[Rfam]
RNA sequence: CCGCAACGCACUUCUUGGGCGUUUCCUCCCUAGACUGAAGGCCGCGGCUCACCCCGCGGCCUUUUUUUCUGGGAUGG
Number, nucleotide and partner (000 for none) at each position: 001c000002c000003g000004c000005a000006a000007c000008g020009c019010a000011c017012u000013u000014c000015u000016u000017g011018g000019g009020c008021g000022u000023u000024u000025c000026c000027u000028c000029c000030c000031u000032a000033g000034a000035c000036u000037g000038a000039a062040g061041g060042c059043c058044g057045c056046g055047g054048c000049u000050c000051a000052c000053c000054c047055c046056g045057c044058g043059g042060c041061c040062u039063u000064u000065u000066u000067u000068u000069c000070u000071g000072g000073g000074a000075u000076g000077g000
This 77-nucleotide RNA sequence from Azospirillum thermophilum belongs to the Rfam family "Makes More Granules Regulator RNA (mmgR)". Pairs were carried over by alignment from the consensus structure. It is annotated as a small RNA. Taxonomically the source falls in Azospirillum (Bacteria, Pseudomonadati, Alphaproteobacteria, Azospirillaceae).